[Rfam]
RNA sequence: AGCUGAAGGAGUAUGAUGAUUCAAUUAGAUGUGUGAAUGGAGAGACAAGAAAAAUCUCCUCUCCUUCAUGAACUUCAAUUUUUUAUUUGGCAAUAAUGUCUGACUCUUUCGCU
Numbered sequence: 001a002g003c004u005g006a007a008g009g010a011g012u013a014u015g016a017u018g019a020u021u022c023a024a025u026u027a028g029a030u031g032u033g034u035g036a037a038u039g040g041a042g043a044g045a046c047a048a049g050a051a052a053a054a055u056c057u058c059c060u061c062u063c064c065u066u067c068a069u070g071a072a073c074u075u076c077a078a079u080u081u082u083u084u085a086u087u088u089g090g091c092a093a094u095a096a097u098g099u100c101u102g103a104c105u106c107u108u109u110c111g112c113u
Stems, first nucleotide, its partner, number of pairs: 001113003005110007
The record is a 113-nucleotide RNA from Papaver nudicaule, which matches "Small nucleolar RNA Z266" in Rfam.
Pairs were carried over by alignment from the consensus structure, which was predicted with PFOLD.
By type it is a C/D-box small nucleolar RNA.